Description:
This 96-nucleotide RNA from Roseiconus nitratireducens belongs to the Rfam family "c-di-GMP-I-GGC riboswitch aptamer". A reference for the family is Kulshina et al. (2009), "Recognition of the bacterial second messenger cyclic diguanylate by its cognate riboswitch", Nat Struct Mol Biol. The base pairs follow the family's consensus structure, which is taken from published work. Rfam 15.1 lists 1,298 matches to the family in 717 species.
RNA sequence: CCAGACAAAGGCAAACCGUCCGAGAGGGCGGGGCGCAAAGCUACGGGUCCGUGGGUGAAUCGAUCGGUUCGCCUCAGGAUUGCCGAGCUGCCGAGG
Number, nucleotide and partner (000 for none) at each position: 001c096002c000003a000004g092005a000006c000007a000008a000009a000010g000011g036012c035013a000014a000015a000016c031017c030018g029019u028020c027021c026022g000023a000024g000025a000026g021027g020028g019029c018030g017031g016032g000033g000034c082035g012036c011037a000038a000039a089040g088041c087042u086043a000044c085045g084046g083047g080048u079049c078050c000051g000052u000053g000054g000055g000056u000057g000058a000059a000060u000061c000062g000063a000064u000065c000066g000067g000068u000069u000070c000071g000072c000073c000074u000075c000076a000077g000078g049079a048080u047081u000082g034083c046084c045085g044086a042087g041088c040089u039090g000091c000092c004093g000094a000095g000096g001